Shown here is an 81-nucleotide RNA sequence from Musa balbisiana, a member of the family "Plastid-rpl20 3UTR RNA".
About the family: Plastid rpl20 is a non-coding RNA (ncRNA) recognised in plastids.
Rfam 15.1 lists 587 matches to the family in 315 species.
NCBI's taxonomy places the organism under Eukaryota, Liliopsida, Petrosaviidae, commelinids, Musa.
The match comes from Rfam's covariance-model search (53 bits).
[Rfam]
RNA sequence: ACAGACUUCCCCGGAGCAGGAGCUCCGGGAAACUAUACAUAAAAUAAAUAAGAUCGUAAGGAAGAACGAAUAUGUUUCCAU
Numbered sequence: 001a002c003a004g005a006c007u008u009c010c011c012c013g014g015a016g017c018a019g020g021a022g023c024u025c026c027g028g029g030a031a032a033c034u035a036u037a038c039a040u041a042a043a044a045u046a047a048a049u050a051a052g053a054u055c056g057u058a059a060g061g062a063a064g065a066a067c068g069a070a071u072a073u074g075u076u077u078c079c080a081u
Stems, first nucleotide, its partner, number of pairs: 007031002010029007064077004